[Rfam]
RNA sequence: UACUAAAUCAAAGAUUUAGGUUUUCACUUAAGUUGACGAGGUUGGGGAGUAUCGAAACUUCGGCGGGUGCCCCACGGUAUCGCACUACCGUAAACGGCUGGUAAAACUGUAAAGCAAUUUGCAGCACAAAUUCAGUCUGGUGUUAAAA
Numbered sequence: 001u002a003c004u005a006a007a008u009c010a011a012a013g014a015u016u017u018a019g020g021u022u023u024u025c026a027c028u029u030a031a032g033u034u035g036a037c038g039a040g041g042u043u044g045g046g047g048a049g050u051a052u053c054g055a056a057a058c059u060u061c062g063g064c065g066g067g068u069g070c071c072c073c074a075c076g077g078u079a080u081c082g083c084a085c086u087a088c089c090g091u092a093a094a095c096g097g098c099u100g101g102u103a104a105a106a107c108u109g110u111a112a113a114g115c116a117a118u119u120u121g122c123a124g125c126a127c128a129a130a131u132u133c134a135g136u137c138u139g140g141u142g143u144u145a146a147a148a
Stems, first nucleotide, its partner, number of pairs: 002033003006029002043074005052063004075090005096137005107124007
glmS glucosamine-6-phosphate activated ribozyme aptamer: a 148-nucleotide sequence from Clostridium sp. DL-VIII. Lineage of the source: Bacteria > Bacillati > Bacillota > Eubacteriales > Clostridium. It is annotated as a riboswitch. A search with the family's covariance model found it, with a score of 82 bits.